[Rfam]
Notes:
Rfam assigns this 69-nucleotide RNA sequence from Phytohabitans flavus to the family "ASpks TB sRNA". It scores 62 bits against the family's covariance model.
RNA sequence: CUUGACCGAACCGAGCAGCAGUGGCCGCUCCCGGUCCCGGCCGUAGGUGGCCAGCAACGCUUGGGCUUC
Number, nucleotide and partner (000 for none) at each position: 001c000002u000003u000004g000005a000006c000007c000008g000009a000010a000011c000012c000013g000014a000015g025016c024017a000018g000019c000020a000021g000022u000023g000024g016025c015026c000027g000028c065029u064030c063031c000032c059033g058034g000035u000036c000037c054038c000039g052040g000041c050042c049043g048044u000045a000046g000047g000048u043049g042050g041051c000052c039053a000054g037055c000056a000057a000058c033059g032060c000061u000062u000063g030064g029065g028066c000067u000068u000069c000
The base pairs follow the family's consensus structure, which is taken from published work.